RNA: c-di-GMP-I riboswitch aptamer
Organism: Desulfofundulus salinus
RNA sequence: CUUUCCGGAGGGCAAACCCGGCGAAAGCCGGGGACGCAAAGCCACAGGUCUAAAGUUCCCCGCGGGGAACCAUGACGGCUGGGUUGCAAGG
Numbered sequence: 001c002u003u004u005c006c007g008g009a010g011g012g013c014a015a016a017c018c019c020g021g022c023g024a025a026a027g028c029c030g031g032g033g034a035c036g037c038a039a040a041g042c043c044a045c046a047g048g049u050c051u052a053a054a055g056u057u058c059c060c061c062g063c064g065g066g067g068a069a070c071c072a073u074g075a076c077g078g079c080u081g082g083g084u085u086g087c088a089a090g091g
Base pairs, nucleotide, nucleotide: 012037013036017032018031019030020029021028022027040085041084042083043082045081046080047079048076049075050074055070056069057068058067059066060065